[Rfam]
Rfam assigns this 85-nucleotide RNA sequence from Bursaphelenchus okinawaensis to the family "mir-46/mir-47/mir-281 microRNA precursor family".
It scores 61 bits against the family's covariance model.
For this family Rfam cites "An abundant class of tiny RNAs with probable regulatory roles in Caenorhabditis elegans" (Lau et al., Science, 2001).
NCBI's taxonomy places the organism under Eukaryota, Ecdysozoa, Chromadorea, Tylenchomorpha, Bursaphelenchus.
The base pairs follow the family's consensus structure, which was predicted with RNAalifold.

RNA sequence: CUGUGUAAAAGCCUAAGAGAGCCACCUGUUGACAGUUGGAGCAUUACGAUACUGUCAUGGAGUUGCUCUCUUAAGAUGGUACACA
Numbered sequence: 001c002u003g004u005g006u007a008a009a010a011g012c013c014u015a016a017g018a019g020a021g022c023c024a025c026c027u028g029u030u031g032a033c034a035g036u037u038g039g040a041g042c043a044u045u046a047c048g049a050u051a052c053u054g055u056c057a058u059g060g061a062g063u064u065g066c067u068c069u070c071u072u073a074a075g076a077u078g079g080u081a082c083a084c085a
Stems, first nucleotide, its partner, number of pairs: 014073005020067003026060003031056003035052002